The family of this 129-nucleotide sequence from Sanguibacter gelidistatuariae is "FMN riboswitch aptamer (RFN element)". Gene Ontology term of the family: FMN binding. A search with the family's covariance model found it, with a score of 100 bits. Taxonomically the source falls in Sanguibacter (Bacteria, Actinomycetes, Micrococcales, Sanguibacteraceae).
[Rfam]
RNA sequence: CCAUUGCUUCGGGGUCGGUGAAAGUCCGAACCGGCGGUUAAAGUCCGCGACCCGUCCAGGGCAACCUGGAUGGUUGAACCGGUGGAACUCCGGUACCGACAGUCAAAGUCUGGAUGGGAGAAGCAGCGG
Numbered sequence: 001c002c003a004u005u006g007c008u009u010c011g012g013g014g015u016c017g018g019u020g021a022a023a024g025u026c027c028g029a030a031c032c033g034g035c036g037g038u039u040a041a042a043g044u045c046c047g048c049g050a051c052c053c054g055u056c057c058a059g060g061g062c063a064a065c066c067u068g069g070a071u072g073g074u075u076g077a078a079c080c081g082g083u084g085g086a087a088c089u090c091c092g093g094u095a096c097c098g099a100c101a102g103u104c105a106a107a108g109u110c111u112g113g114a115u116g117g118g119a120g121a122a123g124c125a126g127c128g129g
Stems, first nucleotide, its partner, number of pairs: 004126007016028003030109002032098002034048004043096002052073002078094005100112003